[Rfam]
RNA sequence: ACGACCUUACUUGAACAGGAUCUGUUCUAUAGGCUCGUACCAUUGUAUCCUUGAAUUCUAAGGAGACAGGAAUCCAAGUCUGGUUGAUGAAGCAUGGCCAUGUGACCAGAGCGUGAUUAACAGCUAUCCAUGGUUUCUCGAGCUGUGGUUACAGUAGAUGAUCGUUCUUAGACCCUUAAUCUCAGGCCUAAGAUGGUCUCAUGGCUGUCUGACAGAC
Dot-bracket structure: (((.(((.....((((((...))))))...))).).))....((((.((((((.....)))))).))))........(((((..............((((((.(((((.((((...........((.(((((((((...))))))))).))...........)))).((((.((..(......))).))))..))))).)))))).......)))))